[Rfam]
mir-306 microRNA precursor family: a 77-nucleotide sequence from Plutella xylostella. Taxonomically the source falls in Plutella (Eukaryota, Panarthropoda, Insecta, Pterygota). The base pairs follow the family's consensus structure, which was predicted with RNAalifold. Rfam links the family to the GO terms miRNA-mediated post-transcriptional gene silencing and RISC complex. Rfam 15.1 lists 49 matches to the family in 48 species.
Nucleotides: 077
Base pairs, nucleotide, nucleotide: 001077003076004075005074006072008071009070011067014064015063016062017061018060019059022056023055024054025053027051028050029049030048031047032046033045
Number, partner (000 for none) and nucleotide at each position: 001077g002000c003076a004075g005074g006072u007000c008071c009070a010000u011067u012000c013000c014064a015063g016062g017061u018060a019059c020000u021000a022056g023055g024054u025053g026000a027051c028050u029049c030048u031047g032046a033045g034000u035000g036000g037000u038000u039000g040000a041000a042000u043000a044000u045033c046032u047031c048030a049029g050028a051027g052000c053025u054024g055023u056022c057000u058000g059019g060018u061017g062016c063015c064014u065000c066000a067011a068000c069000a070009u071008g072006g073000a074005u075004c076003u077001c